Shown here is a 60-nucleotide sequence from Altererythrobacter sp. BO-6, a member of the family "terC RNA". Rfam classes the family as a cis-regulatory element. The match comes from Rfam's covariance-model search (62 bits). The source organism's lineage runs through Bacteria, Pseudomonadati, Alphaproteobacteria, Erythrobacteraceae and Altererythrobacter.
[Rfam]
RNA sequence: AUUGCGGGCCGGGCCCCUCUGGCAGUUUCGAGCAAGAAGCUGUGAUGUCGGACCGCAUCG
Numbered sequence: 001a002u003u004g005c006g007g008g009c010c011g012g013g014c015c016c017c018u019c020u021g022g023c024a025g026u027u028u029c030g031a032g033c034a035a036g037a038a039g040c041u042g043u044g045a046u047g048u049c050g051g052a053c054c055g056c057a058u059c060g
Base pairs, nucleotide, nucleotide: 006054007053009051010050011049012048022043023042024041025040026039027038028037029036